[Rfam]
RNA sequence: CAACGGUUUGUUGAUGAUGAAAACAGUGUGCUGAUGACUACUGAAGAUUUCUCUACACUUCGUCACUACCACUGAAACAAACUGUCG
Numbered sequence: 001c002a003a004c005g006g007u008u009u010g011u012u013g014a015u016g017a018u019g020a021a022a023a024c025a026g027u028g029u030g031c032u033g034a035u036g037a038c039u040a041c042u043g044a045a046g047a048u049u050u051c052u053c054u055a056c057a058c059u060u061c062g063u064c065a066c067u068a069c070c071a072c073u074g075a076a077a078c079a080a081a082c083u084g085u086c087g
Base pairs, nucleotide, nucleotide: 001087003085004084005083006082007081008080009079010078011077012076
A member of the RNA family "Small nucleolar RNA SNORD70" from Branchiostoma lanceolatum, 87 nucleotides long. The pairing is the family consensus, mapped onto this sequence. Rfam classes the family as a C/D-box small nucleolar RNA. Rfam links the family to the GO terms nucleolus and RNA processing. Rfam describes the family as follows. snoRNA HBII-234 belongs to the C/D family of snoRNAs. It is the human orthologue of the mouse MBII-234 and is predicted to guide 2'O-ribose methylation of the small 18S rRNA on position A512. The match comes from Rfam's covariance-model search (51 bits). For this family Rfam cites "RNomics: an experimental approach that identifies 201 candidates for novel, small, non-messenger RNAs in mouse" (Huttenhofer et al., EMBO J, 2001).